[Rfam]
RNA: Small nucleolar RNA SNORA69
RNA sequence: AAAGCAGGUUGCAAUUACAGUGCUUCAUUUUGUGGAAGUACUGCCAUUAUCCUGCUGAAAGAAAAGCUGUGUUGAUCGUUAUUGAUUUUGCCCAUAUGGGGGUAAAAUCAGGACAGAUUGGCAUGGACAAUU
Numbered sequence: 001a002a003a004g005c006a007g008g009u010u011g012c013a014a015u016u017a018c019a020g021u022g023c024u025u026c027a028u029u030u031u032g033u034g035g036a037a038g039u040a041c042u043g044c045c046a047u048u049a050u051c052c053u054g055c056u057g058a059a060a061g062a063a064a065a066g067c068u069g070u071g072u073u074g075a076u077c078g079u080u081a082u083u084g085a086u087u088u089u090g091c092c093c094a095u096a097u098g099g100g101g102g103u104a105a106a107a108u109c110a111g112g113a114c115a116g117a118u119u120g121g122c123a124u125g126g127a128c129a130a131u132u
Base pairs, nucleotide, nucleotide: 003056004055005054006053007052008051018043019042020041021040022039023038024037025036026035067126068125069124070123071122072121073120074119075118076117077116083110084109085108086107087106088105089104090103091102092101093100